This 75-nucleotide RNA sequence from Alligator sinensis belongs to the Rfam family "Mammalian CPEB3 ribozyme". It scores 42 bits against the family's covariance model. The literature on the family includes a 2006 paper in Science by Salehi-Ashtiani et al., "A genomewide search for ribozymes reveals an HDV-like sequence in the human CPEB3 gene". The family's consensus secondary structure is taken from published work.
[Rfam]
RNA sequence: CGAGGGGUUCGAAGCCAUAACAGAAGCAUUCAUGGGGCGGCUAUGUCAGAUUCCAACAAAUCUCUAAAUUCUGCU
Numbered sequence: 001c002g003a004g005g006g007g008u009u010c011g012a013a014g015c016c017a018u019a020a021c022a023g024a025a026g027c028a029u030u031c032a033u034g035g036g037g038c039g040g041c042u043a044u045g046u047c048a049g050a051u052u053c054c055a056a057c058a059a060a061u062c063u064c065u066a067a068a069u070u071c072u073g074c075u
Base pairs, nucleotide, nucleotide: 013042014041015040016039019075021073022072023071024070025069026038027037048063049062050061051060052059
Taxonomically the source falls in Alligator (Eukaryota, Chordata, Teleostomi, Sarcopterygii).